[Rfam]
Rfam assigns this 95-nucleotide sequence from Ceratodon purpureus to the family "Small nucleolar RNA Z152/R70/R12/". The family's consensus secondary structure was predicted with PFOLD. The literature on the family includes a 2001 paper in J Mol Biol by Barneche et al., "Identification of 66 box C/D snoRNAs in Arabidopsis thaliana: extensive gene duplications generated multiple isoforms predicting new ribosomal RNA 2'-O-methylation sites". The family has 9 seed sequences and 604 matches in Rfam 15.1. Its family is annotated with nucleolus and RNA processing in the Gene Ontology.
RNA sequence: UGCGCAAUGAUGAUAAUGCCGUGAGGCAUUUGUGAGGUGCUCAACGGAGUACCGUGGGCAAAUCAUCAAAACGACUUCUUCUUCCACUGAGCGCA
Numbered sequence: 001u002g003c004g005c006a007a008u009g010a011u012g013a014u015a016a017u018g019c020c021g022u023g024a025g026g027c028a029u030u031u032g033u034g035a036g037g038u039g040c041u042c043a044a045c046g047g048a049g050u051a052c053c054g055u056g057g058g059c060a061a062a063u064c065a066u067c068a069a070a071a072c073g074a075c076u077u078c079u080u081c082u083u084c085c086a087c088u089g090a091g092c093g094c095a
Stems, first nucleotide, its partner, number of pairs: 001095005